[Rfam]
RNA: Connexin-43 internal ribosome entry site (IRES)
Organism: Callorhinus ursinus
RNA sequence: AGCUUUUAUUAGGUAUCAGCAGUUGUCUUUCAUUAGGAAGAAGAGUGAGGAAGGUACCAAAGGGUGUAGCAGACUUUUAAACUUCAGAAAGUUUUCAGUGCUUGAACUUAACUUUUUCAUUUUACUUCAUCCUCCAAGGAGUGCAAUCACUUGGUGUCCUACUUCACUUCUUUUAAGCCAAAGAACAGCGAACAGUCAAC
Number, nucleotide and partner (000 for none) at each position: 001a000002g020003c019004u018005u000006u000007u015008a014009u013010u000011a000012g000013g009014u008015a007016u000017c000018a004019g003020c002021a000022g000023u000024u000025g000026u000027c000028u000029u141030u140031c139032a000033u137034u136035a000036g134037g133038a000039a000040g128041a127042a126043g125044a000045g000046u000047g121048a120049g000050g118051a000052a116053g115054g114055u000056a000057c000058c000059a000060a000061a000062g000063g000064g000065u000066g000067u000068a000069g000070c000071a095072g094073a093074c000075u091076u090077u000078u000079a000080a000081a000082c000083u000084u000085c000086a000087g000088a000089a000090a076091g075092u000093u073094u072095u071096c000097a000098g109099u000100g107101c000102u000103u000104g000105a000106a000107c100108u000109u098110a000111a000112c000113u000114u054115u053116u052117u000118c050119a000120u048121u047122u000123u000124a000125c043126u042127u041128c040129a000130u000131c000132c000133u037134c036135c000136a034137a033138g000139g031140a030141g029142u000143g000144c000145a000146a000147u000148c000149a000150c000151u000152u195153g000154g193155u192156g000157u191158c190159c000160u000161a000162c183163u182164u181165c000166a000167c177168u176169u175170c000171u000172u000173u000174u000175a169176a168177g167178c000179c000180a000181a164182a163183g162184a000185a000186c000187a000188g000189c000190g158191a157192a155193c154194a000195g152196u000197c000198a000199a000200c000